[Rfam]
RNA sequence: UCACGUACCCUUUGACCCUUCUUAGUUCAAACAAAUGAACUAAAAAUUUAAAGUGACACAACUUUUUGAAAAACUAGCUCAUUUGUUUGAACUAAGAAGGGUCAAAGGGUAUGCAG
Dot-bracket structure: ...(((((((((((((((((((((((((((((((((((.(((................................))).)))))))))))))))))))))))))))))))))))...
The record is a 116-nucleotide RNA from Brachypodium distachyon, which matches "MIR5070 microRNA precursor family" in Rfam. Rfam 15.1 lists 266 matches to the family in 8 species. Pairs were carried over by alignment from the consensus structure, which was predicted with RNAalifold. Its Rfam clan is "MIR2863 microRNA precursor clan". NCBI's taxonomy places the organism under Eukaryota, Streptophyta, Embryophyta, Mesangiospermae, Brachypodium. The match comes from Rfam's covariance-model search (111 bits).